[Rfam]
RNA sequence: AAAUCGCCCAAUAAGUUUUGCAAUUGUAGCAGUUUUGGCCCCCCAAGACCAAUUUUUGGUAAAAAAAUAAUAACACGUGGCACCUCACUUAGGAUGCCACGUCAGCGUAGACCGAGUCAAAAUUGAUCGUGGGGGCCAAAACUGCCAUAAAUGCAAAACUUAGGGGGCGGUUU
Numbered sequence: 001a002a003a004u005c006g007c008c009c010a011a012u013a014a015g016u017u018u019u020g021c022a023a024u025u026g027u028a029g030c031a032g033u034u035u036u037g038g039c040c041c042c043c044c045a046a047g048a049c050c051a052a053u054u055u056u057u058g059g060u061a062a063a064a065a066a067a068u069a070a071u072a073a074c075a076c077g078u079g080g081c082a083c084c085u086c087a088c089u090u091a092g093g094a095u096g097c098c099a100c101g102u103c104a105g106c107g108u109a110g111a112c113c114g115a116g117u118c119a120a121a122a123u124u125g126a127u128c129g130u131g132g133g134g135g136c137c138a139a140a141a142c143u144g145c146c147a148u149a150a151a152u153g154c155a156a157a158a159c160u161u162a163g164g165g166g167g168c169g170g171u172u173u
Stems, first nucleotide, its partner, number of pairs: 001173002004170005012162011024150004029145014044131002075102002078099005084093001